[Rfam]
RNA sequence: CGAACGAAGAGUUUGAUCCUGGCUCAGGAUGAACGCUGACAGAAUGCUUAACACAUGCAAGUCGACUCGAGUCUUCGGACUUGGGUGGCGGACGGGUGAGUAACGCGUAAAGAACUUGCCUCAUAGUCUGGGACAACAUCUGGAAACGGAUGCUAAUACCGGAUAUUAUGCUUUCUUCGCAUGGAGGAAGUAUGAAAGCUAUAUGCGCUAUGAGAGAGCUUUGCGUCCCAUUAGCUAGUUGGUGAGGUAACGGCCCACCAAGGCGAUGAUGGGUAGCCGGCCUGAGAGGGUGAACGGCCACAAGGGGACUGAGACACGGCCCUUACUCCUACGGGAGGCAGCAGUGGGGAAUAUUGGACAAUGGACCAAAAGUCUGAUCCAGCAAUUCUGUGUGCACGAUGACGUUUUUCGGAAUGUAAAGUGCUUUCAGUCGGGAAGAAGCAAGUGACGGUACCGACAGAAGAAGCGACGGCUAAAUACGUGCCAGCAGCCGCGGUAAUACGUAUGUCGCAAGCGUUAUCCGGAUUUAUUG
Numbered sequence: 001c002g003a004a005c006g007a008a009g010a011g012u013u014u015g016a017u018c019c020u021g022g023c024u025c026a027g028g029a030u031g032a033a034c035g036c037u038g039a040c041a042g043a044a045u046g047c048u049u050a051a052c053a054c055a056u057g058c059a060a061g062u063c064g065a066c067u068c069g070a071g072u073c074u075u076c077g078g079a080c081u082u083g084g085g086u087g088g089c090g091g092a093c094g095g096g097u098g099a100g101u102a103a104c105g106c107g108u109a110a111a112g113a114a115c116u117u118g119c120c121u122c123a124u125a126g127u128c129u130g131g132g133a134c135a136a137c138a139u140c141u142g143g144a145a146a147c148g149g150a151u152g153c154u155a156a157u158a159c160c161g162g163a164u165a166u167u168a169u170g171c172u173u174u175c176u177u178c179g180c181a182u183g184g185a186g187g188a189a190g191u192a193u194g195a196a197a198g199c200u201a202u203a204u205g206c207g208c209u210a211u212g213a214g215a216g217a218g219c220u221u222u223g224c225g226u227c228c229c230a231u232u233a234g235c236u237a238g239u240u241g242g243u244g245a246g247g248u249a250a251c252g253g254c255c256c257a258c259c260a261a262g263g264c265g266a267u268g269a270u271g272g273g274u275a276g277c278c279g280g281c282c283u284g285a286g287a288g289g290g291u292g293a294a295c296g297g298c299c300a301c302a303a304g305g306g307g308a309c310u311g312a313g314a315c316a317c318g319g320c321c322c323u324u325a326c327u328c329c330u331a332c333g334g335g336a337g338g339c340a341g342c343a344g345u346g347g348g349g350a351a352u353a354u355u356g357g358a359c360a361a362u363g364g365a366c367c368a369a370a371a372g373u374c375u376g377a378u379c380c381a382g383c384a385a386u387u388c389u390g391u392g393u394g395c396a397c398g399a400u401g402a403c404g405u406u407u408u409u410c411g412g413a414a415u416g417u418a419a420a421g422u423g424c425u426u427u428c429a430g431u432c433g434g435g436a437a438g439a440a441g442c443a444a445g446u447g448a449c450g451g452u453a454c455c456g457a458c459a460g461a462a463g464a465a466g467c468g469a470c471g472g473c474u475a476a477a478u479a480c481g482u483g484c485c486a487g488c489a490g491c492c493g494c495g496g497u498a499a500u501a502c503g504u505a506u507g508u509c510g511c512a513a514g515c516g517u518u519a520u521c522c523g524g525a526u527u528u529a530u531u532g
Base pairs, nucleotide, nucleotide: 009025010024011023012022013021027522028521029520030519032518033517034516035515036514037513039391040390041389042388043387044386045384046383047348052346053345054344056343057342058341061089062088063087067085068084069082070081071080072079073078096301097300098299105226106225107224108223109222110221111220112219115218116217120214121213122212123211124210125209126208128162129161130160131159137152138151139150140149141148142147168193169192170191171190172189173188174187176185177184178183198206199205227273228272229271234264235263236262239261240260241259242258243257244256246254276298277297278296279295280291281290282289283288303324304323305322306321307320326337327336328335329334354381356380357379358378362376363375364374365373366372394424395423396422397421404415405414406413407412428463430458431457432456433455434454438449466511467510468509469508470507477506478505479504480503481502487494488493
Dot-bracket structure: ........(((((.......))))).((((.((((((.(((((((((....(((.(((..(((...(((((((....))))).)).)))......(((......((((((((..((...(((((((.((((.....((((((....))))))......)))).....(((((((.(((....))).)))))))....((.....)).)))))))..))))))))))(((....(((..((((((.(.......).)))))))))......)))..((((((((....))))...))))))).(((((............))))).((((....))))...)))))).).....(.(((...(((((.....))))).)))).)).))))))..((((......((((....)))).....))))...(.(((((...(..........)....)))))....)..(((((......(((((.....((....)).......)))))))))).))))))))))..........
Notes: Shown here is a 532-nucleotide part of an RNA from Fusobacterium gonidiaformans, a member of the family "Bacterial small subunit ribosomal RNA". It is one of the family's seed sequences. On this family, see Yusupov et al., Science 2001: "Crystal structure of the ribosome at 5.5 A resolution". NCBI's taxonomy places the organism under Bacteria, Fusobacteriati, Fusobacteriota, Fusobacterium, Fusobacterium gonidiaformans.